[Rfam]
Nucleotides: 106
Stems, first nucleotide, its partner, number of pairs: 014073003018069003025061002028058002082105001084103002089100003
Number, partner (000 for none) and nucleotide at each position: 001000u002000g003000a004000c005000u006000g007000c008000g009000a010000u011000g012000a013000a014073g015072c016071a017000g018069g019068a020067g021000g022000u023000u024000g025061c026060c027000g028058a029057u030000a031000c032000a033000c034000a035000c036000g037000g038000c039000c040000g041000c042000u043000u044000u045000g046000c047000c048000a049000u050000g051000g052000c053000g054000u055000g056000c057029g058028u059000a060026g061025g062000g063000a064000a065000a066000a067020u068019u069018c070000u071016u072015g073014c074000u075000g076000a077000g078000a079000a080000a081000a082105u083000g084103u085102c086000u087000a088000u089100u090099u091098u092000a093000a094000a095000a096000a097000u098091a099090g100089g101000c102085g103084a104000a105082a106000a

Overview: This 106-nucleotide RNA sequence from Metabacillus litoralis belongs to the Rfam family "S10-Clostridia ribosomal protein leader". NCBI's taxonomy places the organism under Bacteria, Bacillati, Caryophanales, Bacillaceae, Metabacillus. The literature on the family includes a 2020 paper in BMC Microbiol by Eckert and Weinberg, "Discovery of 20 novel ribosomal leader candidates in bacteria and archaea". The family's RNA type in Rfam is cis-regulatory leader.